[Rfam]
RNA sequence: UGCAUAUCAUGUCUUCGAGCUUGGCCUCCUGUAGUGUUUGCUAUGGAUACCAAGCCGAUAGGCUCAACUGGAAACGGUUGGACCUCCCGUGCGGAAAGAAGAUUUAGUUCACUAAUU
Numbered sequence: 001u002g003c004a005u006a007u008c009a010u011g012u013c014u015u016c017g018a019g020c021u022u023g024g025c026c027u028c029c030u031g032u033a034g035u036g037u038u039u040g041c042u043a044u045g046g047a048u049a050c051c052a053a054g055c056c057g058a059u060a061g062g063c064u065c066a067a068c069u070g071g072a073a074a075c076g077g078u079u080g081g082a083c084c085u086c087c088c089g090u091g092c093g094g095a096a097a098g099a100a101g102a103u104u105u106a107g108u109u110c111a112c113u114a115a116u117u
Stems, first nucleotide, its partner, number of pairs: 006108001011103006019055006027047003033042003060085003064081007086094002

This 117-nucleotide RNA sequence from Sporotomaculum syntrophicum belongs to the Rfam family "Molybdenum/Tungsten riboswitch aptamer (Moco RNA motif)".
The organism belongs to Sporotomaculum, within Bacteria.
It scores 59 bits against the family's covariance model.